[Rfam]
RNA sequence: CAUGGCAGGGAUCGACACCGGUCAGCGCGUUGCGCCCACCGGUGCAAUUCUG
Numbered sequence: 001c002a003u004g005g006c007a008g009g010g011a012u013c014g015a016c017a018c019c020g021g022u023c024a025g026c027g028c029g030u031u032g033c034g035c036c037c038a039c040c041g042g043u044g045c046a047a048u049u050c051u052g
Stems, first nucleotide, its partner, number of pairs: 016044007025035004
The record is a 52-nucleotide RNA sequence from Pseudoruegeria sp. SK021, which matches "ffh sRNA" in Rfam.
Pairs were carried over by alignment from the consensus structure, which is taken from published work.
NCBI's taxonomy places the organism under Bacteria, Pseudomonadati, Alphaproteobacteria, Roseobacteraceae, Pseudoruegeria.